A member of the RNA family "Vault RNA" from Podarcis muralis, 101 nucleotides long. It scores 51 bits against the family's covariance model. The family's consensus secondary structure is taken from published work. On this family, see Stadler et al., Mol Biol Evol 2009: "Evolution of Vault RNAs".
RNA sequence: GGGCCAGCUUAGCCCUAGCGGUUACUUCGGAUAAUCUUUGCAGAUUCACCAUUGCCUAACGGCGGUUUCGAUACUCCGCGGGUUUGCUGUCUGGCUUUUUA
Numbered sequence: 001g002g003g004c005c006a007g008c009u010u011a012g013c014c015c016u017a018g019c020g021g022u023u024a025c026u027u028c029g030g031a032u033a034a035u036c037u038u039u040g041c042a043g044a045u046u047c048a049c050c051a052u053u054g055c056c057u058a059a060c061g062g063c064g065g066u067u068u069c070g071a072u073a074c075u076c077c078g079c080g081g082g083u084u085u086g087c088u089g090u091c092u093g094g095c096u097u098u099u100u101a
Stems, first nucleotide, its partner, number of pairs: 002096006012083004018079004027071004